[Rfam]
RNA sequence: UACUUUGGUAGAGGUUGCGUUUGACAUCAGUACAUGACCGGAUGCCGCGGAGGCAGAUGAUGAUUAUGGAAAGGGGAGGACGCCGAAGGAGCAGAGCAGCCGACGGCUAUGUUCCUGGGCAUACGGUGAAGAACCGUAUGACUGUCAUCGCAAGAUGGGGCGCUAUCGAAAGG
Dot-bracket structure: .....((((((.....((((((..(.......(((((.((....................)).)))))......)..))))))...(((((((.(((........))).)))))))((.((((((((.....)))))))).)).(((((....)))))....)))))).....
Numbered sequence: 001u002a003c004u005u006u007g008g009u010a011g012a013g014g015u016u017g018c019g020u021u022u023g024a025c026a027u028c029a030g031u032a033c034a035u036g037a038c039c040g041g042a043u044g045c046c047g048c049g050g051a052g053g054c055a056g057a058u059g060a061u062g063a064u065u066a067u068g069g070a071a072a073g074g075g076g077a078g079g080a081c082g083c084c085g086a087a088g089g090a091g092c093a094g095a096g097c098a099g100c101c102g103a104c105g106g107c108u109a110u111g112u113u114c115c116u117g118g119g120c121a122u123a124c125g126g127u128g129a130a131g132a133a134c135c136g137u138a139u140g141a142c143u144g145u146c147a148u149c150g151c152a153a154g155a156u157g158g159g160g161c162g163c164u165a166u167c168g169a170a171a172g173g
Stems, first nucleotide, its partner, number of pairs: 006168006017083006025075001033068005039062002087116007095108003117143002120140008145158005

A member of the RNA family "Lysine riboswitch aptamer" from Oscillospiraceae bacterium Marseille-Q3528, 173 nucleotides long.
Pairs were carried over by alignment from the consensus structure, which is taken from published work.
It scores 107 bits against the family's covariance model.